[Rfam]
The family of this 116-nucleotide RNA sequence from Pseudomonas jinjuensis is "Burkholderia RNA 11".
The literature on the family includes a 2013 paper in Genomics by Ramos et al., "Experimental identification of small non-coding regulatory RNAs in the opportunistic human pathogen Burkholderia cenocepacia J2315".
NCBI's taxonomy places the organism under Bacteria, Pseudomonadati, Pseudomonadota, Pseudomonadaceae, Pseudomonas.
About the family: Co-purified with Hfq, expression confirmed by Northern blot. Predicted target marZ. Overlaps coding sequence.
Pairs were carried over by alignment from the consensus structure, which was predicted with RNAfold.
Rfam classes the family as a small RNA.
Nucleotides: 116
Stems, first nucleotide, its partner, number of pairs: 007043003011038001012036003015032001017030004045115004051109004056104001059097001061093002065089001068086002071083002074081001
Number, partner (000 for none) and nucleotide at each position: 001000g002000c003000a004000u005000g006000g007043g008042c009041c010000u011038c012036g013035g014034c015032c016000a017030g018029c019028g020027c021000c022000c023000g024000g025000c026000g027020g028019u029018g030017u031000c032015g033000c034014g035013c036012u037000c038011g039000c040000u041009g042008g043007u044000g045115g046114g047113c048112a049000a050000c051109u052108c053107c054106u055000g056104g057000u058000u059097c060000u061093g062092g063000u064000u065089c066000c067000u068086c069085g070000g071083u072082g073000c074081g075000a076000u077000c078000u079000a080000c081074c082072u083071g084000a085069c086068g087000c088000a089065g090000a091000u092062c093061c094000c095000g096000g097059g098000c099000u100000a101000c102000g103000c104056c105000a106054a107053g108052g109051a110000g111000c112048u113047g114046c115045u116000g